Source information: The record is a 90-nucleotide RNA sequence from Propionispora sp. 2/2-37, which matches "Glycine riboswitch aptamer" in Rfam. The base pairs follow the family's consensus structure. A search with the family's covariance model found it, with a score of 65 bits.
[Rfam]
RNA sequence: AUGAUGGUUGCGGGAGAGAACGCCGUACAGGCGACACCGAAGGAGCAAAUUCUUGUUGAAACUCUCAGGUAAAAAAACCGUAACCGGACC
Number, nucleotide and partner (000 for none) at each position: 001a000002u000003g000004a000005u000006g085007g084008u083009u082010g081011c080012g079013g078014g000015a000016g000017a000018g000019a000020a000021c033022g032023c031024c000025g000026u000027a000028c000029a000030g000031g023032c022033g021034a000035c000036a070037c069038c068039g066040a065041a000042g000043g064044a063045g062046c000047a000048a000049a057050u000051u000052c000053u000054u000055g000056u000057u049058g000059a000060a000061a000062c045063u044064c043065u040066c039067a000068g038069g037070u036071a000072a000073a000074a000075a000076a000077a000078c013079c012080g011081u010082a009083a008084c007085c006086g000087g000088a000089c000090c000
Notes
Its family is annotated with glycine biosynthetic process in the Gene Ontology.